[Rfam]
Streptomyces-metH RNA: a 131-nucleotide sequence from Streptomyces curacoi.

RNA sequence: CCCGUCCGCCCCGUGGACGCCCUGACCAUUCGGCCGCCGUCCCGGCUACUCUGGCGGCGUGCGCCCCCUGUGGAAGUUCCCACGGAGGGCGCAAAGCCGACAGCCGUCGCAUUCCAGGGAGCCCCUUCAUG
Dot-bracket structure: ...........................................................((((.((.((((((......)))))).)).))))..((.(((....))))).....................
Numbered sequence: 001c002c003c004g005u006c007c008g009c010c011c012c013g014u015g016g017a018c019g020c021c022c023u024g025a026c027c028a029u030u031c032g033g034c035c036g037c038c039g040u041c042c043c044g045g046c047u048a049c050u051c052u053g054g055c056g057g058c059g060u061g062c063g064c065c066c067c068c069u070g071u072g073g074a075a076g077u078u079c080c081c082a083c084g085g086a087g088g089g090c091g092c093a094a095a096g097c098c099g100a101c102a103g104c105c106g107u108c109g110c111a112u113u114c115c116a117g118g119g120a121g122c123c124c125c126u127u128c129a130u131g
Stems, first nucleotide, its partner, number of pairs: 060093004065088002068085006096110002099108003
Overview:
The match comes from Rfam's covariance-model search (106 bits).